Shown here is a 74-nucleotide sequence from Facklamia languida, a member of the family "Fluoride riboswitch aptamer (crcB RNA motif)". The source organism's lineage runs through Bacteria, Bacillati, Bacillota, Facklamia and Facklamia languida. Pairs were carried over by alignment from the consensus structure, which is taken from published work. The match comes from Rfam's covariance-model search (44 bits).

RNA sequence: UGAAACCAAGGAAAUGAAGUGCUUCCUUUCGUUGACGAUAAACCGCCGUGUUGGCUGAUGACUUCUGUAGGCUU
Numbered sequence: 001u002g003a004a005a006c007c008a009a010g011g012a013a014a015u016g017a018a019g020u021g022c023u024u025c026c027u028u029u030c031g032u033u034g035a036c037g038a039u040a041a042a043c044c045g046c047c048g049u050g051u052u053g054g055c056u057g058a059u060g061a062c063u064u065c066u067g068u069a070g071g072c073u074u
Stems, first nucleotide, its partner, number of pairs: 010026004016065005045055003